Annotation: This 75-nucleotide RNA sequence belongs to the Rfam family "dfrA-dnaX RNA".
RNA sequence: GCGCCUUAUGGCAAAGCUACUUAUAUUUCAUCAUAACUACCAUAAAGAAUAAUCAAAAAGGAGUUAUGAUUUAAU
Numbered sequence: 001g002c003g004c005c006u007u008a009u010g011g012c013a014a015a016g017c018u019a020c021u022u023a024u025a026u027u028u029c030a031u032c033a034u035a036a037c038u039a040c041c042a043u044a045a046a047g048a049a050u051a052a053u054c055a056a057a058a059a060g061g062a063g064u065u066a067u068g069a070u071u072u073a074a075u
Base pairs, nucleotide, nucleotide: 030070031069032068033067034066035065036064037063